[Rfam]
RNA sequence: GGUGGCCUGUUUGAGGCCACAGCAGAAGCAUUCAUGGUGCAGCCUGCCGUAUUCCAGUGAAUCUGCAAGUUCUGCU
Numbered sequence: 001g002g003u004g005g006c007c008u009g010u011u012u013g014a015g016g017c018c019a020c021a022g023c024a025g026a027a028g029c030a031u032u033c034a035u036g037g038u039g040c041a042g043c044c045u046g047c048c049g050u051a052u053u054c055c056a057g058u059g060a061a062u063c064u065g066c067a068a069g070u071u072c073u074g075c076u
Stems, first nucleotide, its partner, number of pairs: 015044003021076007028040003048065002051062004

This 76-nucleotide RNA from Crocodylus porosus belongs to the Rfam family "Mammalian CPEB3 ribozyme". Pairs were carried over by alignment from the consensus structure, which is taken from published work.